Background
This 94-nucleotide RNA from Octopus sinensis belongs to the Rfam family "Vault RNA". A search with the family's covariance model found it, with a score of 41 bits.
RNA sequence: GUGCGGGCUUAGCCGUGUGGUUACUUCGUUUAAACUGAAUCUUACUGCUAGACUCUUCCUAACCUUGAAACCACUGGCGCCAUCCCGUACACAC
Numbered sequence: 001g002u003g004c005g006g007g008c009u010u011a012g013c014c015g016u017g018u019g020g021u022u023a024c025u026u027c028g029u030u031u032a033a034a035c036u037g038a039a040u041c042u043u044a045c046u047g048c049u050a051g052a053c054u055c056u057u058c059c060u061a062a063c064c065u066u067g068a069a070a071c072c073a074c075u076g077g078c079g080c081c082a083u084c085c086c087g088u089a090c091a092c093a094c
Base pairs, nucleotide, nucleotide: 002089003088004087005086006085007084012078013077014076015075017074018073019072020071025069026068027067028066

Taxonomically the source falls in Octopus (Eukaryota, Metazoa, Lophotrochozoa, Incirrata). The family's consensus secondary structure is taken from published work.